A member of the RNA family "Archaeal large subunit ribosomal RNA" from Candidatus Nanobsidianus stetteri, 243 nucleotides of a longer RNA. NCBI's taxonomy places the organism under Archaea, Nanobdellati, Candidatus Nanoarchaeia, Nanopusillaceae, Candidatus Nanobsidianus. A search with the family's covariance model found it, with a score of 2535 bits. The base pairs follow the family's consensus structure, which is taken from published work.
RNA sequence: GGCUGCCUGAGGGGAAGGUCCGCCUAGUACGAAAGGAACGGCGGGCCGGGGCCUCUGGUAUACGGGCUGUCCGAGAAGGGCAUGCCCGGUAGCUACGCCCUAGGGGAUAAGCCCUGAAAGCAUCUAAGGGUGAAGCCCCCCUCAAAAAUAGGCAGCCGUUAAGGGGUCGGAUAAAAGAUCCGACUCAGAGCGGCGGUGUAAGCUCCGAAAAGGAGUUCAGCCGACCGCUUGAAGUUCCCGUGA
Numbered sequence: 001g002g003c004u005g006c007c008u009g010a011g012g013g014g015a016a017g018g019u020c021c022g023c024c025u026a027g028u029a030c031g032a033a034a035g036g037a038a039c040g041g042c043g044g045g046c047c048g049g050g051g052c053c054u055c056u057g058g059u060a061u062a063c064g065g066g067c068u069g070u071c072c073g074a075g076a077a078g079g080g081c082a083u084g085c086c087c088g089g090u091a092g093c094u095a096c097g098c099c100c101u102a103g104g105g106g107a108u109a110a111g112c113c114c115u116g117a118a119a120g121c122a123u124c125u126a127a128g129g130g131u132g133a134a135g136c137c138c139c140c141c142u143c144a145a146a147a148a149u150a151g152g153c154a155g156c157c158g159u160u161a162a163g164g165g166g167u168c169g170g171a172u173a174a175a176a177g178a179u180c181c182g183a184c185u186c187a188g189a190g191c192g193g194c195g196g197u198g199u200a201a202g203c204u205c206c207g208a209a210a211a212g213g214a215g216u217u218c219a220g221c222c223g224a225c226c227g228c229u230u231g232a233a234g235u236u237c238c239c240g241u242g243a
Base pairs, nucleotide, nucleotide: 001157002156003155004154005153006152007151008150011143012142013141014140017047018046019045020044021043022042023041024040048101049100050099051098052097056095057094058093063088064087065086066085067084068082069081070080071079072078104138105137106136111131112130113129114128115127163239164238165237166236167183168182169181170180171179189229190228191227192226193225194223195222196221202216203215204214205213206212